[Rfam]
RNA sequence: AACCCGGCACGGCACCCGCCGGUCAGACCGGGACCGUCCCGCCGCAAGGCAGGACUACC
Numbered sequence: 001a002a003c004c005c006g007g008c009a010c011g012g013c014a015c016c017c018g019c020c021g022g023u024c025a026g027a028c029c030g031g032g033a034c035c036g037u038c039c040c041g042c043c044g045c046a047a048g049g050c051a052g053g054a055c056u057a058c059c
Stems, first nucleotide, its partner, number of pairs: 003032005010021004036055004041050003
Transposase-2 RNA: a 59-nucleotide RNA from Actinoplanes awajinensis.